[Rfam]
RNA sequence: UCACAAGUUCAAGGCAACAGCAGAAGCACUCAUGGUACUGCCCUGUCAGAUUCCAAUAAAUCUAUGAAUUCUGCU
Dot-bracket structure: ............[[[[..((((((((.(.......).)]]]].....(((((......))))).....)))))))
The family of this 75-nucleotide RNA from Crocodylus porosus is "Mammalian CPEB3 ribozyme". About the family: The mammalian CPEB3 ribozyme is a self cleaving RNA located in the second intron of the CPEB3 gene which belongs to a family of genes regulating messenger RNA polyadenylation. Rfam 15.1 lists 5,706 matches to the family in 197 species.